[Rfam]
RNA: drum RNA
RNA sequence: UGACAUUGAAGCAAUAGACUGGUUCGGCAUCAGCCUGUUGUAGAGCCAAACCGUGGGUUUAGCGAAAACCACAAGCCGAAUAGAUUCACUCGAAUCGAACAAAACGCAAAAU
Numbered sequence: 001u002g003a004c005a006u007u008g009a010a011g012c013a014a015u016a017g018a019c020u021g022g023u024u025c026g027g028c029a030u031c032a033g034c035c036u037g038u039u040g041u042a043g044a045g046c047c048a049a050a051c052c053g054u055g056g057g058u059u060u061a062g063c064g065a066a067a068a069c070c071a072c073a074a075g076c077c078g079a080a081u082a083g084a085u086u087c088a089c090u091c092g093a094a095u096c097g098a099a100c101a102a103a104a105c106g107c108a109a110a111a112u
Stems, first nucleotide, its partner, number of pairs: 001048002004045001011041007019033003024079004062107003083096004